[Rfam]
RNA sequence: UCUCCUCUAUGAUGAACUGCAUGCUCUGUCCGUGUUUCACCUGAUCAACACUGAUUACAAACAUGCGCUGAGCAGAGA
Numbered sequence: 001u002c003u004c005c006u007c008u009a010u011g012a013u014g015a016a017c018u019g020c021a022u023g024c025u026c027u028g029u030c031c032g033u034g035u036u037u038c039a040c041c042u043g044a045u046c047a048a049c050a051c052u053g054a055u056u057a058c059a060a061a062c063a064u065g066c067g068c069u070g071a072g073c074a075g076a077g078a
Stems, first nucleotide, its partner, number of pairs: 001078004007072001